[Rfam]
RNA sequence: CUUCAACGAGCCCAGCCACACCGGCGUCCGACGGCUCUGGCCGUACGUGGCGAUCAGCGCCUGCGCCUC
Numbered sequence: 001c002u003u004c005a006a007c008g009a010g011c012c013c014a015g016c017c018a019c020a021c022c023g024g025c026g027u028c029c030g031a032c033g034g035c036u037c038u039g040g041c042c043g044u045a046c047g048u049g050g051c052g053a054u055c056a057g058c059g060c061c062u063g064c065g066c067c068u069c
Stems, first nucleotide, its partner, number of pairs: 015025003029065002032059002038053001041050003
RNA: ASpks TB sRNA
Organism: Streptomyces sp. yr375